[Rfam]
RNA sequence: AAACACAGAGAUAAAAACACAGCCCCGGCCGGUAGUCCGGGCGCAGCAGAAGUGCUGUCAGUAACCUGCCUCCUUGGUUGUCCGUUCUCUGUGGUUUGGAU
Numbered sequence: 001a002a003a004c005a006c007a008g009a010g011a012u013a014a015a016a017a018c019a020c021a022g023c024c025c026c027g028g029c030c031g032g033u034a035g036u037c038c039g040g041g042c043g044c045a046g047c048a049g050a051a052g053u054g055c056u057g058u059c060a061g062u063a064a065c066c067u068g069c070c071u072c073c074u075u076g077g078u079u080g081u082c083c084g085u086u087c088u089c090u091g092u093g094g095u096u097u098g099g100a101u
Stems, first nucleotide, its partner, number of pairs: 004093008022042002025040004043058006068078003

Background
This 101-nucleotide RNA from Caproicibacterium amylolyticum belongs to the Rfam family "azaaromatic riboswitch aptamer (yjdF RNA)". Pairs were carried over by alignment from the consensus structure, which is taken from published work.